The family of this 132-nucleotide sequence from Diabrotica virgifera is "Small nucleolar RNA psi18S-1377". Rfam classes the family as an H/ACA-box small nucleolar RNA. The source organism's lineage runs through Eukaryota, Eumetazoa, Insecta, Polyphaga and Diabrotica virgifera. Gene Ontology terms of the family: RNA processing and nucleolus.
[Rfam]
RNA sequence: UGGUCCCUGUGUUACCUGAAUUUAUAUUCCAUGUGAACUUGGGUGUCAAAAGGGACAUACAGUAAAAUCCAACUUUUCCACAAGCAUGUAUGGAAUCAAUCGUGUUUUGCUUACUAAGAAUUGGAUACACUA
Dot-bracket structure: ..(((((..((....((((...................))))....))...))))).........................(((((..((((........))))...)))))....................
Numbered sequence: 001u002g003g004u005c006c007c008u009g010u011g012u013u014a015c016c017u018g019a020a021u022u023u024a025u026a027u028u029c030c031a032u033g034u035g036a037a038c039u040u041g042g043g044u045g046u047c048a049a050a051a052g053g054g055a056c057a058u059a060c061a062g063u064a065a066a067a068u069c070c071a072a073c074u075u076u077u078c079c080a081c082a083a084g085c086a087u088g089u090a091u092g093g094a095a096u097c098a099a100u101c102g103u104g105u106u107u108u109g110c111u112u113a114c115u116a117a118g119a120a121u122u123g124g125a126u127a128c129a130c131u132a
Stems, first nucleotide, its partner, number of pairs: 003056005010048002016042004082112005089104004